[Rfam]
RNA sequence: AAUAAAUUUCGAACGCGAUAUUUUUUUUAAUCGUUGAAAUUGAUUCGUCGAAUUUAAAUAAUAAUAAAUAUUCAAAUAAAAACUUUGAAAAUUAAAAUAAAAAAAGAUUUUAUAUGAACAACAAUUAAACAUAAAUUAAUCGAUUUUAAAAAAUAAAAAAUUUUUGUUUCAAAAUGCGCAUUUGUGCGUCGUUUUUCGAAAAGAAAAUCGAUUAAUAUUUCGAUAUUUAAAUAUAAAUUUUUCACGACAACGUAAUUGAACGCGAAAACGACGACGAAAUUUUUAAAAAAAAUAUUUUUUUUUAACGAUUUAUCAUUUUAAAAUCGAUUUGUUCGAAAUUAAAAUUUAACAAUUGAUAAAAUUUCGCAUUUUUGCGAAAUUCGACGCGUUUUCGACGUUUUUUAAAAAUUCGCGAAAAAAAAUAAUUUUUACGUUAAAUCGUAUUCAUAAUCGCAACAAAUUUUCAAAAUAAACAAUUUUUAAUUAAUAAAAUAAUGUAAACGUUAAUUCGUUAAUUUUAAUUUACGAUUAU
Dot-bracket structure: .......((((((......................................................................))))))((((......(((..((...((((.(....(.....)..).))))......(((.((....((((.(((....))))))......(((........))).......).....))...(((((........)))))..((((.(.((((......(((....))).......((((((...((((.(((((.(.((.((((((.....))))))...(((((....(((((((..((((.....))))..))))))).....)))))......(((((((....)))))))...))...).))))).)))).........))))))............).))).))))).)))..)).....(........).)))..((((..................................................))))..))))..
Numbered sequence: 001a002a003u004a005a006a007u008u009u010c011g012a013a014c015g016c017g018a019u020a021u022u023u024u025u026u027u028u029a030a031u032c033g034u035u036g037a038a039a040u041u042g043a044u045u046c047g048u049c050g051a052a053u054u055u056a057a058a059u060a061a062u063a064a065u066a067a068a069u070a071u072u073c074a075a076a077u078a079a080a081a082a083c084u085u086u087g088a089a090a091a092u093u094a095a096a097a098u099a100a101a102a103a104a105a106g107a108u109u110u111u112a113u114a115u116g117a118a119c120a121a122c123a124a125u126u127a128a129a130c131a132u133a134a135a136u137u138a139a140u141c142g143a144u145u146u147u148a149a150a151a152a153a154u155a156a157a158a159a160a161u162u163u164u165u166g167u168u169u170c171a172a173a174a175u176g177c178g179c180a181u182u183u184g185u186g187c188g189u190c191g192u193u194u195u196u197c198g199a200a201a202a203g204a205a206a207a208u209c210g211a212u213u214a215a216u217a218u219u220u221c222g223a224u225a226u227u228u229a230a231a232u233a234u235a236a237a238u239u240u241u242u243c244a245c246g247a248c249a250a251c252g253u254a255a256u257u258g259a260a261c262g263c264g265a266a267a268a269c270g271a272c273g274a275c276g277a278a279a280u281u282u283u284u285a286a287a288a289a290a291a292a293u294a295u296u297u298u299u300u301u302u303u304a305a306c307g308a309u310u311u312a313u314c315a316u317u318u319u320a321a322a323a324u325c326g327a328u329u330u331g332u333u334c335g336a337a338a339u340u341a342a343a344a345u346u347u348a349a350c351a352a353u354u355g356a357u358a359a360a361a362u363u364u365c366g367c368a369u370u371u372u373u374g375c376g377a378a379a380u381u382c383g384a385c386g387c388g389u390u391u392u393c394g395a396c397g398u399u400u401u402u403u404a405a406a407a408a409u410u411c412g413c414g415a416a417a418a419a420a421a422a423u424a425a426u427u428u429u430u431a432c433g434u435u436a437a438a439u440c441g442u443a444u445u446c447a448u449a450a451u452c453g454c455a456a457c458a459a460a461u462u463u464u465c466a467a468a469a470u471a472a473a474c475a476a477u478u479u480u481u482a483a484u485u486a487a488u489a490a491a492a493u494a495a496u497g498u499a500a501a502c503g504u505u506a507a508u509u510c511g512u513u514a515a516u517u518u519u520a521a522u523u524u525a526c527g528a529u530u531a532u
Stems, first nucleotide, its partner, number of pairs: 008089006090530004100464003105445002110134004115129001120126001141441003145203002151196001152168003156165003175188003207224005227437004232433001234431003237427001244253003261414006270399004275394005281388001283384002286302006306355005315345007324336004362379007451460001467524004
Rfam assigns this 532-nucleotide part of an RNA from Heterodermia speciosa to the family "Eukaryotic large subunit ribosomal RNA". NCBI's taxonomy places the organism under Eukaryota, Ascomycota, Lecanoromycetes, Lecanoromycetidae, Heterodermia. The match comes from Rfam's covariance-model search (288 bits). Pairs were carried over by alignment from the consensus structure, which is taken from published work.